Annotation:
pan motif: a 96-nucleotide RNA sequence from Thermoactinomyces daqus. The match comes from Rfam's covariance-model search (53 bits). The family's consensus secondary structure is taken from published work. Rfam classes the family as a cis-regulatory element.
RNA sequence: GAGGCGGCAUCCGGAGAGGAGCUGCACUUCAUCUCCUUGCGUACAUUUUUUUAUCUGUAUGGAUCUGCUUCGAGCCGUUGGGACGGAGACAGAGGG
Numbered sequence: 001g002a003g004g005c006g007g008c009a010u011c012c013g014g015a016g017a018g019g020a021g022c023u024g025c026a027c028u029u030c031a032u033c034u035c036c037u038u039g040c041g042u043a044c045a046u047u048u049u050u051u052u053a054u055c056u057g058u059a060u061g062g063a064u065c066u067g068c069u070u071c072g073a074g075c076c077g078u079u080g081g082g083a084c085g086g087a088g089a090c091a092g093a094g095g096g
Base pairs, nucleotide, nucleotide: 001029002028003027004025005024006023007022008021010020011019065092066091067090068088069087070086071085072084075082076081